This 186-nucleotide RNA sequence from Phtheirospermum japonicum belongs to the Rfam family "small nucleolar RNA snoR143". For this family Rfam cites "Mining small RNA sequencing data: a new approach to identify small nucleolar RNAs in Arabidopsis" (Chen and Wu, Nucleic Acids Res, 2009). A search with the family's covariance model found it, with a score of 55 bits. Rfam classes the family as an H/ACA-box small nucleolar RNA.
[Rfam]
RNA sequence: CUGCGUAUCAAAGGCUUCCCCAAUAUUCUCAAGAAUAUAUAUAAAUAAAUGGAGAAUCCUUAUCGAAUUCGUAGAAAUGAAAUGUCGAGCUCGAAUCGGCGGCGGCCAGACAACCGCUGAGAUGGAUCCACAGAGGAGCGCCGCCUCUUUCACUGCGCUUUUCUUCUAAAUUUUAAUCUUAUUUUA
Numbered sequence: 001c002u003g004c005g006u007a008u009c010a011a012a013g014g015c016u017u018c019c020c021c022a023a024u025a026u027u028c029u030c031a032a033g034a035a036u037a038u039a040u041a042u043a044a045a046u047a048a049a050u051g052g053a054g055a056a057u058c059c060u061u062a063u064c065g066a067a068u069u070c071g072u073a074g075a076a077a078u079g080a081a082a083u084g085u086c087g088a089g090c091u092c093g094a095a096u097c098g099g100c101g102g103c104g105g106c107c108a109g110a111c112a113a114c115c116g117c118u119g120a121g122a123u124g125g126a127u128c129c130a131c132a133g134a135g136g137a138g139c140g141c142c143g144c145c146u147c148u149u150u151c152a153c154u155g156c157g158c159u160u161u162u163c164u165u166c167u168a169a170a171u172u173u174u175a176a177u178c179u180u181a182u183u184u185u186a
Base pairs, nucleotide, nucleotide: 004065005064011061012060013059014058016056017055018054020052021051022050119180120179121178122177123176124173125172126171135161136160137159138158139157140156141155
Dot-bracket structure: ...((.....((((.(((.(((...........................))).))).))))..)).....................................................((((((((........(((((((.............))))))).........)))..)))))......